[Rfam]
Record summary:
Microsporidia small subunit ribosomal RNA: a 353-nucleotide part of an RNA from Janacekia debaisieuxi. Its family is annotated with ribosome and structural constituent of ribosome in the Gene Ontology. It is one of the family's seed sequences. Its Rfam clan is "SSU clan".

RNA sequence: CAGUUAAAAUGUCCGUAGUUGAUUUAAUUAAACUGUGAGUAAAUUAUAGAGCUCAAAACUAUAAGUAAGCAUGGUAUUAUAAGAUAAUAGGAACAGAUGAUGGCAAUAGUAUUCAAUAGUUAGAGGUGAAAAUUUAAGACCUAUUGAGGACUACCAGAAGCGAAAGCGAUUGUCAAGGAUGUCUCCAUUAAUAAGGGACUUAAGCUAGAGUAUCGAAGAUGAUUAGAUACCGUCGUAGUUCUAGCUGUAAACGAUGCCUACUAGGUGAUGUUUAAAUGGCUAUGCCUUAGGAGAAAUCAAAGUCUACGGGCUCUGGGGAUAGUAUACUGGCAACGGUGAAACUUAAAUGAAAU
Numbered sequence: 001c002a003g004u005u006a007a008a009a010u011g012u013c014c015g016u017a018g019u020u021g022a023u024u025u026a027a028u029u030a031a032a033c034u035g036u037g038a039g040u041a042a043a044u045u046a047u048a049g050a051g052c053u054c055a056a057a058a059c060u061a062u063a064a065g066u067a068a069g070c071a072u073g074g075u076a077u078u079a080u081a082a083g084a085u086a087a088u089a090g091g092a093a094c095a096g097a098u099g100a101u102g103g104c105a106a107u108a109g110u111a112u113u114c115a116a117u118a119g120u121u122a123g124a125g126g127u128g129a130a131a132a133u134u135u136a137a138g139a140c141c142u143a144u145u146g147a148g149g150a151c152u153a154c155c156a157g158a159a160g161c162g163a164a165a166g167c168g169a170u171u172g173u174c175a176a177g178g179a180u181g182u183c184u185c186c187a188u189u190a191a192u193a194a195g196g197g198a199c200u201u202a203a204g205c206u207a208g209a210g211u212a213u214c215g216a217a218g219a220u221g222a223u224u225a226g227a228u229a230c231c232g233u234c235g236u237a238g239u240u241c242u243a244g245c246u247g248u249a250a251a252c253g254a255u256g257c258c259u260a261c262u263a264g265g266u267g268a269u270g271u272u273u274a275a276a277u278g279g280c281u282a283u284g285c286c287u288u289a290g291g292a293g294a295a296a297u298c299a300a301a302g303u304c305u306a307c308g309g310g311c312u313c314u315g316g317g318g319a320u321a322g323u324a325u326a327c328u329g330g331c332a333a334c335g336g337u338g339a340a341a342c343u344u345a346a347a348u349g350a351a352a353u
Stems, first nucleotide, its partner, number of pairs: 001315003011199004018192003090186003093182003098177001101175007108152002112148008123134002160167002204245006214238001218234004256311003260303002263287005270280003291298002317344002326337004